[Rfam]
RNA: Glycine riboswitch aptamer
Organism: Alicyclobacillaceae bacterium I2511
RNA sequence: AUGAAGUCCACGUGAGAGGGGCUUUCUACCCACCGACGGGGCAAUGUGCGGAUUCACCUCAACCCGUGCAGAAACUCUCAGGUCGCAAAACGCGGAUGGAUG
Numbered sequence: 001a002u003g004a005a006g007u008c009c010a011c012g013u014g015a016g017a018g019g020g021g022c023u024u025u026c027u028a029c030c031c032a033c034c035g036a037c038g039g040g041g042c043a044a045u046g047u048g049c050g051g052a053u054u055c056a057c058c059u060c061a062a063c064c065c066g067u068g069c070a071g072a073a074a075c076u077c078u079c080a081g082g083u084c085g086c087a088a089a090a091c092g093c094g095g096a097u098g099g100a101u102g
Base pairs, nucleotide, nucleotide: 006097007096008095009094011092012091013090020030021029032083033082034081035079036078039077040076041075045070046069047068048067049066050065051064